A member of the RNA family "FMN riboswitch aptamer (RFN element)" from Pseudomonas oryzihabitans, 160 nucleotides long. The family's consensus secondary structure is taken from published work.
[Rfam]
RNA sequence: GCGAGUUCUCAGGGCGGGGUGUAAUUCCCCACCGGCGGUAAUGCCCGAUCGACUCGGGACGAGCCCGCGAGCGCUCCCUUGCCCUCUGCGGCGGGGGAGGUCAGCAGACCUGGUUGGAUUCCGGGGCCGACGGUCAUAGUCCGGAUGAGAGAGAACGGGA
Numbered sequence: 001g002c003g004a005g006u007u008c009u010c011a012g013g014g015c016g017g018g019g020u021g022u023a024a025u026u027c028c029c030c031a032c033c034g035g036c037g038g039u040a041a042u043g044c045c046c047g048a049u050c051g052a053c054u055c056g057g058g059a060c061g062a063g064c065c066c067g068c069g070a071g072c073g074c075u076c077c078c079u080u081g082c083c084c085u086c087u088g089c090g091g092c093g094g095g096g097g098a099g100g101u102c103a104g105c106a107g108a109c110c111u112g113g114u115u116g117g118a119u120u121c122c123g124g125g126g127c128c129g130a131c132g133g134u135c136a137u138a139g140u141c142c143g144g145a146u147g148a149g150a151g152a153g154a155a156c157g158g159g160a
Stems, first nucleotide, its partner, number of pairs: 005156006017029003031140002033129002035068004063127002071105002109125005131143003